[Rfam]
RNA sequence: AAACUUUCACUAUGCAUAGUUACUCUAGAUUUCACUGGUGUGACUUUCGGACCAGGAGAGAGAGAAAUGAGUUCCUCAAGUGCCUUGGAUUGACCUCACAGUGGCCUCUCUUUCCUAGAGGAGGACCACAGGU
Numbered sequence: 001a002a003a004c005u006u007u008c009a010c011u012a013u014g015c016a017u018a019g020u021u022a023c024u025c026u027a028g029a030u031u032u033c034a035c036u037g038g039u040g041u042g043a044c045u046u047u048c049g050g051a052c053c054a055g056g057a058g059a060g061a062g063a064g065a066a067a068u069g070a071g072u073u074c075c076u077c078a079a080g081u082g083c084c085u086u087g088g089a090u091u092g093a094c095c096u097c098a099c100a101g102u103g104g105c106c107u108c109u110c111u112u113u114c115c116u117a118g119a120g121g122a123g124g125a126c127c128a129c130a131g132g133u
Base pairs, nucleotide, nucleotide: 004062005061006060007059008058011056013054014053018045019044020043021042022041023040025038072123073122074121075120076119079116080115087111088110089109092106094104095103
The family of this 133-nucleotide RNA from Cricetulus griseus is "Small nucleolar RNA SNORA64/SNORA10 family". Clan: SNORA64 clan. The family's consensus secondary structure is taken from published work. NCBI's taxonomy places the organism under Eukaryota, Teleostomi, Eutheria, Boreoeutheria, Cricetulus.